Overview: Rfam assigns this 80-nucleotide RNA from Sciurus carolinensis to the family "Small nucleolar RNA SNORD121A". The family's RNA type in Rfam is C/D-box small nucleolar RNA. A search with the family's covariance model found it, with a score of 76 bits. A reference for the family is Yang et al. (2006), "snoSeeker: an advanced computational package for screening of guide and orphan snoRNA genes in the human genome", Nucleic Acids Res. Gene Ontology terms of the family: nucleolus and RNA processing. The organism belongs to Sciurus, within Eukaryota.
[Rfam]
RNA sequence: GUCUUGAAACAAUGAUGAGAUAAUUUCCAAGCACAUACCUGAUUUUUCCAUGUGGAAUUUAACUACUGAGUUUCCUGGGG
Numbered sequence: 001g002u003c004u005u006g007a008a009a010c011a012a013u014g015a016u017g018a019g020a021u022a023a024u025u026u027c028c029a030a031g032c033a034c035a036u037a038c039c040u041g042a043u044u045u046u047u048c049c050a051u052g053u054g055g056a057a058u059u060u061a062a063c064u065a066c067u068g069a070g071u072u073u074c075c076u077g078g079g080g
Stems, first nucleotide, its partner, number of pairs: 002079003006075001007073004